Source information
A member of the RNA family "Eukaryotic large subunit ribosomal RNA" from Tetrapisispora phaffii, 494 nucleotides of a longer RNA. The base pairs follow the family's consensus structure, which is taken from published work. The match comes from Rfam's covariance-model search (3323 bits). NCBI's taxonomy places the organism under Eukaryota, saccharomyceta, Saccharomycetales, Tetrapisispora, Tetrapisispora phaffii.

RNA sequence: CCUGCCGAAGUUUCCCUCAGGAUAGCAGAAGCUCGUAUCAGUUUUAUGAGGUAAAGCGAAUGAUUAGAGGUGCCGGGGUUGAAAUGACCUUGACCUAUUCUCAAACUUUAAAUAUGUAAGAAGUCCUUGUUACUUGAUUGAACGUGGACAUAUGAAUGAAGAGCUUUUAGUGGGCCAUUUUUGGUAAGCAGAACUGGCGAUGCGGGAUGAACCGAACGUUGAGUUAAGGUGCCGGAAUACACGCUCAUCAGACACCACAAAAGGUGUUAGUUCAUCUAGACAGCCGGACGGUGGCCAUGGAAGUCGGAAUCCGCUAAGGAGUGUGUAACAACUCACCGGCCGAAUGAACUAGCCCUGAAAAUGGAUGGCGCUCAAGCGUGAUACCUAUACUCGACCGUCACGGUUGAAUGAUAUGCCGUGACGAGUAGGCAGGCGUGGAGGUCCGUGACGAAGCCUAGGCUGUGAAGCCUGGUCGAACGGCCUCUAGUGCAGAU
Numbered sequence: 001c002c003u004g005c006c007g008a009a010g011u012u013u014c015c016c017u018c019a020g021g022a023u024a025g026c027a028g029a030a031g032c033u034c035g036u037a038u039c040a041g042u043u044u045u046a047u048g049a050g051g052u053a054a055a056g057c058g059a060a061u062g063a064u065u066a067g068a069g070g071u072g073c074c075g076g077g078g079u080u081g082a083a084a085u086g087a088c089c090u091u092g093a094c095c096u097a098u099u100c101u102c103a104a105a106c107u108u109u110a111a112a113u114a115u116g117u118a119a120g121a122a123g124u125c126c127u128u129g130u131u132a133c134u135u136g137a138u139u140g141a142a143c144g145u146g147g148a149c150a151u152a153u154g155a156a157u158g159a160a161g162a163g164c165u166u167u168u169a170g171u172g173g174g175c176c177a178u179u180u181u182u183g184g185u186a187a188g189c190a191g192a193a194c195u196g197g198c199g200a201u202g203c204g205g206g207a208u209g210a211a212c213c214g215a216a217c218g219u220u221g222a223g224u225u226a227a228g229g230u231g232c233c234g235g236a237a238u239a240c241a242c243g244c245u246c247a248u249c250a251g252a253c254a255c256c257a258c259a260a261a262a263g264g265u266g267u268u269a270g271u272u273c274a275u276c277u278a279g280a281c282a283g284c285c286g287g288a289c290g291g292u293g294g295c296c297a298u299g300g301a302a303g304u305c306g307g308a309a310u311c312c313g314c315u316a317a318g319g320a321g322u323g324u325g326u327a328a329c330a331a332c333u334c335a336c337c338g339g340c341c342g343a344a345u346g347a348a349c350u351a352g353c354c355c356u357g358a359a360a361a362u363g364g365a366u367g368g369c370g371c372u373c374a375a376g377c378g379u380g381a382u383a384c385c386u387a388u389a390c391u392c393g394a395c396c397g398u399c400a401c402g403g404u405u406g407a408a409u410g411a412u413a414u415g416c417c418g419u420g421a422c423g424a425g426u427a428g429g430c431a432g433g434c435g436u437g438g439a440g441g442u443c444c445g446u447g448a449c450g451a452a453g454c455c456u457a458g459g460c461u462g463u464g465a466a467g468c469c470u471g472g473u474c475g476a477a478c479g480g481c482c483u484c485u486a487g488u489g490c491a492g493a494u
Stems, first nucleotide, its partner, number of pairs: 001433006011024001013022003027168007042121007054109001055107002061103003066098001068096003074092005080086001123149004128144004174198004179193005203214003218395005224389001228385003237382001242378003262356003266353010283340005289313003295307002314318001319334001323332002396423009434489001436486008445478002453473002459468003